This 204-nucleotide sequence from Micromonospora pisi belongs to the Rfam family "Actinobacteria sRNA Ms_IGR-5". The pairing is the family consensus, mapped onto this sequence. A search with the family's covariance model found it, with a score of 100 bits. On this family, see Li et al., RNA 2013: "Identification of small RNAs in Mycobacterium smegmatis using heterologous Hfq". NCBI's taxonomy places the organism under Bacteria, Bacillati, Actinomycetota, Micromonosporaceae, Micromonospora.
[Rfam]
RNA sequence: ACACGUGAAGGGAGGUGGUCCAAGCUUUGUGUAGCAACGGGACUCGUGAGGUGGCUGUCCGCUAGCCGCUGUCCUUGACAGUGCAAGACCGUCGAGACCGUGUGGCAGCGGUGCGGCGAAAACCAGACAGCCACCCGACCCCCGGGGUGCCGGUUCAGUCCGACCGGCCCGCGCACCGCGCGGAAGCCCCGGGGGUCGUUCCAU
Number, nucleotide and partner (000 for none) at each position: 001a000002c000003a000004c000005g000006u000007g000008a000009a000010g000011g000012g000013a000014g059015g058016u057017g056018g055019u054020c000021c000022a000023a000024g000025c000026u000027u000028u000029g000030u000031g000032u000033a000034g000035c000036a000037a000038c000039g000040g000041g000042a000043c000044u000045c000046g000047u000048g000049a000050g000051g000052u000053g000054g019055c018056u017057g016058u015059c014060c118061g117062c116063u115064a000065g114066c113067c000068g109069c108070u107071g106072u000073c104074c000075u000076u000077g000078a000079c000080a000081g000082u000083g000084c000085a000086a000087g000088a000089c000090c000091g000092u000093c000094g000095a000096g000097a000098c000099c000100g000101u000102g000103u000104g073105g000106c071107a070108g069109c068110g000111g000112u000113g066114c065115g063116g062117c061118g060119a000120a000121a000122a000123c000124c000125a000126g000127a000128c000129a000130g000131c000132c000133a000134c000135c000136c198137g197138a196139c195140c194141c193142c192143c191144g190145g189146g188147g187148u186149g168150c167151c166152g165153g164154u163155u000156c000157a000158g000159u000160c000161c000162g000163a154164c153165c152166g151167g150168c149169c000170c000171g000172c000173g000174c000175a000176c000177c000178g000179c000180g000181c000182g000183g000184a000185a000186g148187c147188c146189c145190c144191g143192g142193g141194g140195g139196u138197c137198g136199u000200u000201c000202c000203a000204u000